[Rfam]
RNA sequence: ACGCCCUGACGGCAGCGCGCGCUGAGGCCAGGACCCCCGGCGUCACCGCGUCCGCUGCCGCACGGUCCACCGAACCGAGGCAUCAUG
Numbered sequence: 001a002c003g004c005c006c007u008g009a010c011g012g013c014a015g016c017g018c019g020c021g022c023u024g025a026g027g028c029c030a031g032g033a034c035c036c037c038c039g040g041c042g043u044c045a046c047c048g049c050g051u052c053c054g055c056u057g058c059c060g061c062a063c064g065g066u067c068c069a070c071c072g073a074a075c076c077g078a079g080g081c082a083u084c085a086u087g
Base pairs, nucleotide, nucleotide: 001083003081004080005079010060011059012058014056015055016054017053019051020050024046025043027041028040029039031037063077064076065075
Dot-bracket structure: (.(((....(((.((((.((...((.(((.(.....).))).)..)...)).)))).)))..(((.........))).))).)....